A member of the RNA family "pemK RNA", 65 nucleotides long.
The base pairs follow the family's consensus structure, which is taken from published work.
The family's RNA type in Rfam is cis-regulatory element.

[Rfam]
RNA sequence: AUAAUGAUACUGCUAAGGUUUAAGCCGGCUAAUCUUGAACAGAGGUAGAGGCGAGAUUCCUAUGU
Numbered sequence: 001a002u003a004a005u006g007a008u009a010c011u012g013c014u015a016a017g018g019u020u021u022a023a024g025c026c027g028g029c030u031a032a033u034c035u036u037g038a039a040c041a042g043a044g045g046u047a048g049a050g051g052c053g054a055g056a057u058u059c060c061u062a063u064g065u
Base pairs, nucleotide, nucleotide: 013024014023016021025048027046029044030043049061050060051059